[Rfam]
RNA sequence: UGACUUACCUAAACUCCCCUUAAACCAAGACCUCUAGGGAGUAUAAACACGUCUUUCAUAUCCUCGUUAAGGGUACGAGGAAAUAGUAACUCCA
Numbered sequence: 001u002g003a004c005u006u007a008c009c010u011a012a013a014c015u016c017c018c019c020u021u022a023a024a025c026c027a028a029g030a031c032c033u034c035u036a037g038g039g040a041g042u043a044u045a046a047a048c049a050c051g052u053c054u055u056u057c058a059u060a061u062c063c064u065c066g067u068u069a070a071g072g073g074u075a076c077g078a079g080g081a082a083a084u085a086g087u088a089a090c091u092c093c094a
Base pairs, nucleotide, nucleotide: 014041015040016039017038018037027055028054029053030052031051061081062080063079064078065077066076067075
Dot-bracket structure: .............(((((........[[[[[.....))))).........]]]]].....(((((((.......))))))).............

A member of the RNA family "PhotoRC-II RNA" from Synechococcus phage S-B05, 94 nucleotides long.